Small nucleolar RNA SNORA14: a 126-nucleotide sequence from Copsychus sechellarum.
Rfam's curators write: ACA14 is a member of the H/ACA class of snoRNA that guide the sites of modification of uridines to pseudouridines.
Lineage of the source: Eukaryota > Opisthokonta > Deuterostomia > Neoaves > Copsychus.
RNA sequence: GCGUAUUUUUCCUGUGCAACAUUUUAUUAAGUGUUGCACAGCUUUUGAAUACUAAGGUAAUGGUGAAAUAUACUCAAAAGCUGCUAUUAUGAACUGACACAGUUUUCUCUCAAACUUGUCAAAACC
Numbered sequence: 001g002c003g004u005a006u007u008u009u010u011c012c013u014g015u016g017c018a019a020c021a022u023u024u025u026a027u028u029a030a031g032u033g034u035u036g037c038a039c040a041g042c043u044u045u046u047g048a049a050u051a052c053u054a055a056g057g058u059a060a061u062g063g064u065g066a067a068a069u070a071u072a073c074u075c076a077a078a079a080g081c082u083g084c085u086a087u088u089a090u091g092a093a094c095u096g097a098c099a100c101a102g103u104u105u106u107c108u109c110u111c112a113a114a115c116u117u118g119u120c121a122a123a124a125c126c
Base pairs, nucleotide, nucleotide: 003052004051005050006049012041013040014039015038016037018035019034020033056126057125058124061121062120063119064118065117066116077106078105079104080103081102082101083100